[Rfam]
RNA sequence: AUUAUUUUGAUGUUGUAGAUACUGCAUCAGGAACUGAUUGGAUCCCAGGGAGCAGCCAUCAGUUCCUAAUGCACUGCCUUCGGCAUCUAAACA
Numbered sequence: 001a002u003u004a005u006u007u008u009g010a011u012g013u014u015g016u017a018g019a020u021a022c023u024g025c026a027u028c029a030g031g032a033a034c035u036g037a038u039u040g041g042a043u044c045c046c047a048g049g050g051a052g053c054a055g056c057c058a059u060c061a062g063u064u065c066c067u068a069a070u071g072c073a074c075u076g077c078c079u080u081c082g083g084c085a086u087c088u089a090a091a092c093a
Base pairs, nucleotide, nucleotide: 023073024072025071026070027069029067030066031065032064033063034062035061036060037059039058040057041056

The family of this 93-nucleotide sequence from Xenopus tropicalis is "mir-217 microRNA precursor family". The match comes from Rfam's covariance-model search (100 bits). For this family Rfam cites "Vertebrate microRNA genes" (Lim et al., Science, 2003).